RNA sequence: UAGCUCAGCAGCCCCUCUUGAUGAUUCCUCUUCCUGAGUGGCUCUAGUGAUGAGCAGACUGAGCCUCUAAGAAGUUGACUGAAGGGGCUGGAGAGAU
Number, nucleotide and partner (000 for none) at each position: 001u000002a000003g000004c000005u000006c000007a000008g000009c090010a089011g088012c087013c086014c085015c084016u000017c000018u000019u000020g000021a000022u000023g000024a000025u000026u000027c000028c000029u000030c000031u000032u000033c000034c000035u000036g000037a000038g000039u000040g000041g000042c000043u000044c000045u000046a000047g000048u000049g000050a000051u000052g000053a000054g000055c000056a000057g000058a000059c000060u000061g000062a000063g000064c000065c000066u000067c000068u000069a000070a000071g000072a000073a000074g000075u000076u000077g000078a000079c000080u000081g000082a000083a000084g015085g014086g013087g012088c011089u010090g009091g000092a000093g000094a000095g000096a000097u000
Notes:
Shown here is a 97-nucleotide sequence from Jaculus jaculus, a member of the family "Small nucleolar RNA SNORD125". The source organism's lineage runs through Eukaryota, Chordata, Vertebrata, Sarcopterygii and Jaculus. Rfam classes the family as a C/D-box small nucleolar RNA. Rfam 15.1 lists 526 matches to the family in 498 species. A search with the family's covariance model found it, with a score of 95 bits.